[Rfam]
RNA sequence: AUCAAUCCAUCGUAAAAACGCACAUAUAUCGACACAAUUAUUGGGUGCUGAACGUGAAAACGGCCAGUCGGUAAUUGGGAUAUAUGGAGGCCUAAC
Numbered sequence: 001a002u003c004a005a006u007c008c009a010u011c012g013u014a015a016a017a018a019c020g021c022a023c024a025u026a027u028a029u030c031g032a033c034a035c036a037a038u039u040a041u042u043g044g045g046u047g048c049u050g051a052a053c054g055u056g057a058a059a060a061c062g063g064c065c066a067g068u069c070g071g072u073a074a075u076u077g078g079g080a081u082a083u084a085u086g087g088a089g090g091c092c093u094a095a096c
Stems, first nucleotide, its partner, number of pairs: 023086008035077009047068004

Shown here is a 96-nucleotide sequence from Agitococcus lubricus, a member of the family "t44 RNA".